[Rfam]
RNA sequence: UAAAAGGAGUGAUGAAAGAAAUUGUUCAGAUUCCCAAUGAUUUAAACUAUGAUAUCCAAGCCAGCUACUUCUGAUAUUA
Numbered sequence: 001u002a003a004a005a006g007g008a009g010u011g012a013u014g015a016a017a018g019a020a021a022u023u024g025u026u027c028a029g030a031u032u033c034c035c036a037a038u039g040a041u042u043u044a045a046a047c048u049a050u051g052a053u054a055u056c057c058a059a060g061c062c063a064g065c066u067a068c069u070u071c072u073g074a075u076a077u078u079a
Base pairs, nucleotide, nucleotide: 001079002078003077005075
Shown here is a 79-nucleotide RNA from Kingdonia uniflora, a member of the family "Small nucleolar RNA R12". Rfam 15.1 lists 992 matches to the family in 220 species.